[Rfam]
RNA sequence: GUGGGAGGAAGCUCAUUGAAGAGGUCACAUGCUGAGUGCUACGUCACUCCACCAAUCACCUCGGGGAAGGUCUGAGACAAGAGCCAAUCGUCGCCCUCGCAGGGCGUCACCUGAUCCGGGUGAGUGGGUGCACAGAAACAGUGGGCCUGCGGUGGGUCACUCUCGCAGGAGAAGCCAGGCGGCGCUACUUCUCAGCGCCGCCUGGCGGAUGCGGACCCACCGGGCUUGGAAACACCCACGGCUGGCGGAUGAGUGCGAUGGAUGAGGUGGAGCACCGCUCCAGAACCCAAUUCAGACUACUCUCCCCCCAC
Numbered sequence: 001g002u003g004g005g006a007g008g009a010a011g012c013u014c015a016u017u018g019a020a021g022a023g024g025u026c027a028c029a030u031g032c033u034g035a036g037u038g039c040u041a042c043g044u045c046a047c048u049c050c051a052c053c054a055a056u057c058a059c060c061u062c063g064g065g066g067a068a069g070g071u072c073u074g075a076g077a078c079a080a081g082a083g084c085c086a087a088u089c090g091u092c093g094c095c096c097u098c099g100c101a102g103g104g105c106g107u108c109a110c111c112u113g114a115u116c117c118g119g120g121u122g123a124g125u126g127g128g129u130g131c132a133c134a135g136a137a138a139c140a141g142u143g144g145g146c147c148u149g150c151g152g153u154g155g156g157u158c159a160c161u162c163u164c165g166c167a168g169g170a171g172a173a174g175c176c177a178g179g180c181g182g183c184g185c186u187a188c189u190u191c192u193c194a195g196c197g198c199c200g201c202c203u204g205g206c207g208g209a210u211g212c213g214g215a216c217c218c219a220c221c222g223g224g225c226u227u228g229g230a231a232a233c234a235c236c237c238a239c240g241g242c243u244g245g246c247g248g249a250u251g252a253g254u255g256c257g258a259u260g261g262a263u264g265a266g267g268u269g270g271a272g273c274a275c276c277g278c279u280c281c282a283g284a285a286c287c288c289a290a291u292u293c294a295g296a297c298u299a300c301u302c303u304c305c306c307c308c309c310a311c
Base pairs, nucleotide, nucleotide: 001311002310003309004308007305008304009303012266013265014264015263016262017261021062022061023060024059034049035048036047037046038045039043072295073294074293075292076291082243083242084241085240092106093105094104095103096102107123108122109121110120111119112118124239125238126237127236128235129234130233145225146224147223148222149221268282269281270280271279272278273277
A member of the RNA family "Nuclear RNase P" from Merluccius polli, 311 nucleotides long. Rfam's curators write: Ribonuclease P (RNase P) is a ubiquitous endoribonuclease, found in archaea, bacteria and eukarya as well as chloroplasts and mitochondria. Its best characterised activity is the generation of mature 5'-ends of tRNAs by cleaving the 5'-leader elements of precursor-tRNAs. Cellular RNase Ps are ribonucleoproteins. RNA from bacterial RNase Ps retains its catalytic activity in the absence of the protein subunit, i.e. it is a ribozyme. Isolated eukaryotic and archaeal RNase P RNA has not been shown to retain its catalytic function, but is still essential for the catalytic activity of the holoenzyme. Although the archaeal and eukaryotic holoenzyme s have a much greater protein content than the bacterial ones, the RNA cores from all the three lineages are homologous -- helices corresponding to P1, P2, P3, P4, and P10/11 are common to all cellular RNase P RNAs. Yet, there is considerable sequence variation, particularly among the eukaryotic RNAs.